Rfam assigns this 359-nucleotide part of an RNA from Haloarcula marismortui to the family "Archaeal large subunit ribosomal RNA". Pairs were carried over by alignment from the consensus structure, which is taken from published work. The family is grouped with related families in Rfam's "LSU clan". The organism belongs to Haloarcula, within Archaea.
RNA sequence: CAUAGUAGCAGCGAUAGUCGGGUGAGAACCCCGACGGCCUAAUGGAUAAGGGUUCCUCAGCACUGCUGAUCAGCUGAGGGUUAGCCGGUCCUAAGUCAUACCGCAACUCGACUGAGACGAAAUGGGAAACAGGUUAAUAUUCCCGUGCCACUAUGCAGUGAAAGUUGACGCCCUGGGGUCGAUCACGCUGGGCAUUCGCCCAGUCGAACCGUCCAACUCCGAGGAAGCCGUAAUGGCAGGAAGCGGACGAACGGCGGCAUAGGGAAACGUGAUUCAACCUGGGGCCCAUGAAAAGACGAGCAUGAUGUCCGUACCGAGAACCGACACAGGUGUCCAUGGCGGCGAAAGCCAAGGCCUGU
Numbered sequence: 001c002a003u004a005g006u007a008g009c010a011g012c013g014a015u016a017g018u019c020g021g022g023u024g025a026g027a028a029c030c031c032c033g034a035c036g037g038c039c040u041a042a043u044g045g046a047u048a049a050g051g052g053u054u055c056c057u058c059a060g061c062a063c064u065g066c067u068g069a070u071c072a073g074c075u076g077a078g079g080g081u082u083a084g085c086c087g088g089u090c091c092u093a094a095g096u097c098a099u100a101c102c103g104c105a106a107c108u109c110g111a112c113u114g115a116g117a118c119g120a121a122a123u124g125g126g127a128a129a130c131a132g133g134u135u136a137a138u139a140u141u142c143c144c145g146u147g148c149c150a151c152u153a154u155g156c157a158g159u160g161a162a163a164g165u166u167g168a169c170g171c172c173c174u175g176g177g178g179u180c181g182a183u184c185a186c187g188c189u190g191g192g193c194a195u196u197c198g199c200c201c202a203g204u205c206g207a208a209c210c211g212u213c214c215a216a217c218u219c220c221g222a223g224g225a226a227g228c229c230g231u232a233a234u235g236g237c238a239g240g241a242a243g244c245g246g247a248c249g250a251a252c253g254g255c256g257g258c259a260u261a262g263g264g265a266a267a268c269g270u271g272a273u274u275c276a277a278c279c280u281g282g283g284g285c286c287c288a289u290g291a292a293a294a295g296a297c298g299a300g301c302a303u304g305a306u307g308u309c310c311g312u313a314c315c316g317a318g319a320a321c322c323g324a325c326a327c328a329g330g331u332g333u334c335c336a337u338g339g340c341g342g343c344g345a346a347a348g349c350c351a352a353g354g355c356c357u358g359u
Base pairs, nucleotide, nucleotide: 017035018034019033020032021031022030036356037355038354039353044335045334046333047332050315051314055079056078057077058076059075060074064072065071086311087310088309090125091124095118096117097116099114100113102110103109129146130145132143133142149307150306152304153303154302155301156300164297165296166295170285171284172283173282174281175280176279177278181274182273183272184271185270187204188203189202190201191200209257210256211255212254218247219246220245221244227237228236229235263268321330322329337351338350339349340348